SAM-I/IV (S-adenosyl methionine) riboswitch aptamer: a 104-nucleotide RNA from Roseicyclus persicicus. The family is grouped with related families in Rfam's "SAM clan". The literature on the family includes a 2008 paper in RNA by Weinberg et al., "The aptamer core of SAM-IV riboswitches mimics the ligand-binding site of SAM-I riboswitches". A search with the family's covariance model found it, with a score of 68 bits. Rfam links the family to the GO terms regulation of gene expression and S-adenosylmethionine metabolic process.
[Rfam]
RNA sequence: UCCCUGCAUCAAGAGCGAGGCGCAUGCCUCCGCCAACCUGCCAGACCCGGCAAGGUGGUCGCCCGAAAGGGGAUGUGGCCAGUUCGGCAACGAAGGGGUUCGCG
Numbered sequence: 001u002c003c004c005u006g007c008a009u010c011a012a013g014a015g016c017g018a019g020g021c022g023c024a025u026g027c028c029u030c031c032g033c034c035a036a037c038c039u040g041c042c043a044g045a046c047c048c049g050g051c052a053a054g055g056u057g058g059u060c061g062c063c064c065g066a067a068a069g070g071g072g073a074u075g076u077g078g079c080c081a082g083u084u085c086g087g088c089a090a091c092g093a094a095g096g097g098g099u100u101c102g103c104g
Stems, first nucleotide, its partner, number of pairs: 006076005015031001017030005032059003037055003040051003044100005078088003